RNA: Archaeal RNase P
RNA sequence: GCGAGCUGGUGAACGAUUACUGCUACGGCAGAGGAAACUCCUCCCUCCUUGCAGCAAGCGUGAUCUGGAGACGGAUAGUCAGAGAUGACUGGCAAUGGCACAGAAAAAAAUCAUAACUGGAGCACUAUGAUGGUAAAACCUGAGAUUUCCAGGAUGUGAAUGAAAAAUCCAUCCCAUGCGGAGAAAGGCCAAAUCAAACAAUAAGAGCUGCACUUUGUUUAGGUAGGCCGCAUAGCGAAAUGUCGUGAAAACAGAAGGAGGGUUACGGCCAGAACGC
Numbered sequence: 001g002c003g004a005g006c007u008g009g010u011g012a013a014c015g016a017u018u019a020c021u022g023c024u025a026c027g028g029c030a031g032a033g034g035a036a037a038c039u040c041c042u043c044c045c046u047c048c049u050u051g052c053a054g055c056a057a058g059c060g061u062g063a064u065c066u067g068g069a070g071a072c073g074g075a076u077a078g079u080c081a082g083a084g085a086u087g088a089c090u091g092g093c094a095a096u097g098g099c100a101c102a103g104a105a106a107a108a109a110a111u112c113a114u115a116a117c118u119g120g121a122g123c124a125c126u127a128u129g130a131u132g133g134u135a136a137a138a139c140c141u142g143a144g145a146u147u148u149c150c151a152g153g154a155u156g157u158g159a160a161u162g163a164a165a166a167a168u169c170c171a172u173c174c175c176a177u178g179c180g181g182a183g184a185a186a187g188g189c190c191a192a193a194u195c196a197a198a199c200a201a202u203a204a205g206a207g208c209u210g211c212a213c214u215u216u217g218u219u220u221a222g223g224u225a226g227g228c229c230g231c232a233u234a235g236c237g238a239a240a241u242g243u244c245g246u247g248a249a250a251a252c253a254g255a256a257g258g259a260g261g262g263u264u265a266c267g268g269c270c271a272g273a274a275c276g277c
Stems, first nucleotide, its partner, number of pairs: 001277003006272004010267002013246005020031004036264003040261005045183004050212005058179005063076005077090005091174002096171003111159003114154001117152005132140002187229004196220005